[Rfam]
RNA: Eukaryotic large subunit ribosomal RNA, nucleotides 656 to 936
RNA sequence: GAGUCUAAUAUCUAUGCAAGUGUUUAGGUGUUAAGCCUAAGCGCGCAAUGAAAGUAAACAGAGGUAGGAACCUUAGGGUGCACUAUUAACUAAUCCUAAAGUCUUUAGAUAGAUUUAAGUAAGAGCAUAGCUGUUAGGACCUAAAAGAUAGUAAACUAUGCUUAAAUAGAGUAAAGCUAGAGGAAACUCUAGUAGAGGCUCGCAGCGGUUCUGACGUGCAAAUCAAUUGUUAAAUUUAGGCAUAGAGGCAAAAGACUAAUUAAACUAUCUAGUAGCUAGUU
Numbered sequence: 001g002a003g004u005c006u007a008a009u010a011u012c013u014a015u016g017c018a019a020g021u022g023u024u025u026a027g028g029u030g031u032u033a034a035g036c037c038u039a040a041g042c043g044c045g046c047a048a049u050g051a052a053a054g055u056a057a058a059c060a061g062a063g064g065u066a067g068g069a070a071c072c073u074u075a076g077g078g079u080g081c082a083c084u085a086u087u088a089a090c091u092a093a094u095c096c097u098a099a100a101g102u103c104u105u106u107a108g109a110u111a112g113a114u115u116u117a118a119g120u121a122a123g124a125g126c127a128u129a130g131c132u133g134u135u136a137g138g139a140c141c142u143a144a145a146a147g148a149u150a151g152u153a154a155a156c157u158a159u160g161c162u163u164a165a166a167u168a169g170a171g172u173a174a175a176g177c178u179a180g181a182g183g184a185a186a187c188u189c190u191a192g193u194a195g196a197g198g199c200u201c202g203c204a205g206c207g208g209u210u211c212u213g214a215c216g217u218g219c220a221a222a223u224c225a226a227u228u229g230u231u232a233a234a235u236u237u238a239g240g241c242a243u244a245g246a247g248g249c250a251a252a253a254g255a256c257u258a259a260u261u262a263a264a265c266u267a268u269c270u271a272g273u274a275g276c277u278a279g280u281u
Stems, first nucleotide, its partner, number of pairs: 005137006012130006020044003025039005048055002063087005070079003089120002091117003094113002101106001140279001147269006156245011167233001169201004176193007205230004210226001213224002247257002